c-di-GMP-I riboswitch aptamer: an 89-nucleotide RNA from Syntrophobotulus glycolicus.
[Rfam]
RNA sequence: GAAUAUUAAGGGCAAACCUGUGGAAAUGCAGGGACGCAAAGCUAUGGGUCUAAAGAUAUGAGAGUAUCAAUGACUGCCAGGCCGCUAUU
Numbered sequence: 001g002a003a004u005a006u007u008a009a010g011g012g013c014a015a016a017c018c019u020g021u022g023g024a025a026a027u028g029c030a031g032g033g034a035c036g037c038a039a040a041g042c043u044a045u046g047g048g049u050c051u052a053a054a055g056a057u058a059u060g061a062g063a064g065u066a067u068c069a070a071u072g073a074c075u076g077c078c079a080g081g082c083c084g085c086u087a088u089u
Base pairs, nucleotide, nucleotide: 012037013036017032018031019030020029021028022027041082042081043080045079046078047077048074049073050072055068056067057066058065
Taxonomically the source falls in Syntrophobotulus glycolicus (Bacteria, Clostridia, Desulfitobacteriaceae, Syntrophobotulus).